[Rfam]
RNA sequence: CCCUUAUCAAGAGUGGUGGAGGGAACGGCCCAGUGAAGCCACGGCAACCUGCAGUGUAAGGUGCCAAAUCCGACGGUAAGCGACAGAUGAGGA
Dot-bracket structure: .(((((((....(((((...(((..[[[)))......)))))((((.(((((...))).))))))...(]]].((.....))..)))))))).
Description:
This 93-nucleotide sequence from Pusillibacter faecalis belongs to the Rfam family "SAM riboswitch aptamer (S box leader)". It scores 77 bits against the family's covariance model.